[Rfam]
RNA sequence: GCACUCACAUCACCGCACCGCCGGGCAGGAGCGGGGGACCCACUUCUGCCGUCCGGAACACCACGACCGGACGGCUUGGGGUGAAGCCGUGGCAGCCGCACGGCCGGGCCAUCUCCAGCCCGAACCCGACAGCUCACCUCGCAGGCGUCCCGGAGUAUGGAU
Numbered sequence: 001g002c003a004c005u006c007a008c009a010u011c012a013c014c015g016c017a018c019c020g021c022c023g024g025g026c027a028g029g030a031g032c033g034g035g036g037g038a039c040c041c042a043c044u045u046c047u048g049c050c051g052u053c054c055g056g057a058a059c060a061c062c063a064c065g066a067c068c069g070g071a072c073g074g075c076u077u078g079g080g081g082u083g084a085a086g087c088c089g090u091g092g093c094a095g096c097c098g099c100a101c102g103g104c105c106g107g108g109c110c111a112u113c114u115c116c117a118g119c120c121c122g123a124a125c126c127c128g129a130c131a132g133c134u135c136a137c138c139u140c141g142c143a144g145g146c147g148u149c150c151c152g153g154a155g156u157a158u159g160g161a162u
Stems, first nucleotide, its partner, number of pairs: 011147001013145002019029001031142006041078002079127003087103004106121004
The record is a 162-nucleotide sequence from Streptomyces piniterrae, which matches "c-di-AMP riboswitch aptamer (ydaO/yuaA leader)" in Rfam.
It scores 63 bits against the family's covariance model.
The source organism's lineage runs through Bacteria, Bacillati, Actinomycetota, Kitasatosporales and Streptomyces.
The base pairs follow the family's consensus structure.